A member of the RNA family "Glm Y RNA activator of glmS mRNA" from Duffyella gerundensis, 166 nucleotides long. This family consists of a number of bacterial RNA genes of around 167 bases in length. The tke1 RNA gene is present in Escherichia coli, Shigella flexneri, Yersinia pestis and Salmonella species where it is found between the yfhK and purL genes. The function of this RNA is unknown.
[Rfam]
RNA sequence: AGUUGCUCAUUCACCUGAUUAUGAAUGCCCUGCGCAAGCGGUCAAGAUGCUCAUAAAAUUCGAAUGACGCACAAAAACGGUGCCUGUCGUCCACUGAACCGAUUAUUGUCUGCGCGUUUGCAGCAUUAUCACAUUCCGGGCGUAACGUUGAGUUAGGCACCACCUU
Numbered sequence: 001a002g003u004u005g006c007u008c009a010u011u012c013a014c015c016u017g018a019u020u021a022u023g024a025a026u027g028c029c030c031u032g033c034g035c036a037a038g039c040g041g042u043c044a045a046g047a048u049g050c051u052c053a054u055a056a057a058a059u060u061c062g063a064a065u066g067a068c069g070c071a072c073a074a075a076a077a078c079g080g081u082g083c084c085u086g087u088c089g090u091c092c093a094c095u096g097a098a099c100c101g102a103u104u105a106u107u108g109u110c111u112g113c114g115c116g117u118u119u120g121c122a123g124c125a126u127u128a129u130c131a132c133a134u135u136c137c138g139g140g141c142g143u144a145a146c147g148u149u150g151a152g153u154u155a156g157g158c159a160c161c162a163c164c165u166u
Base pairs, nucleotide, nucleotide: 005070006069007067008066009065010064011063012062019056020055021054022053023052024051027050028049079161080160081159082158083157084156085155088142089141090140091139092138101130102129103128105126144154145153146152